The family of this 56-nucleotide sequence from Synechococcales cyanobacterium M55_K2018_004 is "Nitrogen stress-induced RNA 1". On this family, see Ionescu et al., J Mol Biol 2010: "Heterocyst-specific transcription of NsiR1, a non-coding RNA encoded in a tandem array of direct repeats in cyanobacteria". Rfam 15.1 lists 962 matches to the family in 163 species. The base pairs follow the family's consensus structure. It scores 52 bits against the family's covariance model.
[Rfam]
RNA sequence: UGGUAGAUGCACCCUGAUUCAUUAAACUCCUGGUUUCGCGGCCAGGAGUUUUUUUG
Numbered sequence: 001u002g003g004u005a006g007a008u009g010c011a012c013c014c015u016g017a018u019u020c021a022u023u024a025a026a027c028u029c030c031u032g033g034u035u036u037c038g039c040g041g042c043c044a045g046g047a048g049u050u051u052u053u054u055u056g
Stems, first nucleotide, its partner, number of pairs: 002013003027048009